[Rfam]
RNA sequence: UCUGAGAAUAGAGGUGCAUGAAAUCAAGAGUCACUUAUUAGAGACUAAUGGAGUCUGUGAAGAUAAGUAAAAGGGAUUUCGUGCCGAAGUAUAUAGACAUCCAUUGUGUUCAUAUACUGGUUCAGUAUUGAAUAAAUGCUGAGCUGUCACAAACCAUUUGGUUUGUGGAGAGCUAUUGAAGAG
Numbered sequence: 001u002c003u004g005a006g007a008a009u010a011g012a013g014g015u016g017c018a019u020g021a022a023a024u025c026a027a028g029a030g031u032c033a034c035u036u037a038u039u040a041g042a043g044a045c046u047a048a049u050g051g052a053g054u055c056u057g058u059g060a061a062g063a064u065a066a067g068u069a070a071a072a073g074g075g076a077u078u079u080c081g082u083g084c085c086g087a088a089g090u091a092u093a094u095a096g097a098c099a100u101c102c103a104u105u106g107u108g109u110u111c112a113u114a115u116a117c118u119g120g121u122u123c124a125g126u127a128u129u130g131a132a133u134a135a136a137u138g139c140u141g142a143g144c145u146g147u148c149a150c151a152a153a154c155c156a157u158u159u160g161g162u163u164u165g166u167g168g169a170g171a172g173c174u175a176u177u178g179a180a181g182a183g
Base pairs, nucleotide, nucleotide: 007177008176009175010174011173016084017083018082019081020080021079022078023077024076033068034067035066036065037064038063039062088118089117090116091115092114093113094112096110097109098108099107119145120144121143122142123141124140125139126138127137128136129135147168148167149166150165151164152163153162